This 54-nucleotide RNA from Salmo trutta belongs to the Rfam family "UnaL2 LINE 3' element". Taxonomically the source falls in Salmo (Eukaryota, Opisthokonta, Actinopteri, Neopterygii). It scores 58 bits against the family's covariance model. Rfam 15.1 lists 493,311 matches to the family in 99 species.
RNA sequence: UACGCUCCCUAUUGUAAGUUGCUCUGGAUAAGAGCAUCUGCUUAAUGACUCAAA
Numbered sequence: 001u002a003c004g005c006u007c008c009c010u011a012u013u014g015u016a017a018g019u020u021g022c023u024c025u026g027g028a029u030a031a032g033a034g035c036a037u038c039u040g041c042u043u044a045a046u047g048a049c050u051c052a053a054a
Stems, first nucleotide, its partner, number of pairs: 014041003020036006